[Rfam]
RNA: FMN riboswitch aptamer (RFN element)
Organism: Collinsella stercoris
RNA sequence: AUAUUGUUUCAGGGCGGGGCGCAAUUCCCCACCGGCGGUAAAUGCAAACGCAACCCGCGUUGCGCGCAUGAGCCCGCGAGCCGCGCACAGCGGUUGACCUGGUGAGAUUCCGGGGCCGACGGUAUAGUCCGGAUGAGAGAAACGAGGU
Numbered sequence: 001a002u003a004u005u006g007u008u009u010c011a012g013g014g015c016g017g018g019g020c021g022c023a024a025u026u027c028c029c030c031a032c033c034g035g036c037g038g039u040a041a042a043u044g045c046a047a048a049c050g051c052a053a054c055c056c057g058c059g060u061u062g063c064g065c066g067c068a069u070g071a072g073c074c075c076g077c078g079a080g081c082c083g084c085g086c087a088c089a090g091c092g093g094u095u096g097a098c099c100u101g102g103u104g105a106g107a108u109u110c111c112g113g114g115g116c117c118g119a120c121g122g123u124a125u126a127g128u129c130c131g132g133a134u135g136a137g138a139g140a141a142a143c144g145a146g147g148u
Base pairs, nucleotide, nucleotide: 004145005144006143007142008141009140010139017029018028019027031128032127033118034117035077036076037075038074072116073115080094081093082092098114099113100112101111102110120131121130122129